[Rfam]
RNA: mir-11 microRNA precursor family
Organism: Spodoptera littoralis
RNA sequence: UCUCGUGGCUAGUACUUUGGCUGUGACCUGUGUGUCGUAGUCACAUCACAGUCAGAGUUCUAGCUACGCGG
Numbered sequence: 001u002c003u004c005g006u007g008g009c010u011a012g013u014a015c016u017u018u019g020g021c022u023g024u025g026a027c028c029u030g031u032g033u034g035u036c037g038u039a040g041u042c043a044c045a046u047c048a049c050a051g052u053c054a055g056a057g058u059u060c061u062a063g064c065u066a067c068g069c070g071g
Stems, first nucleotide, its partner, number of pairs: 004068003009063004014058004021051006030044003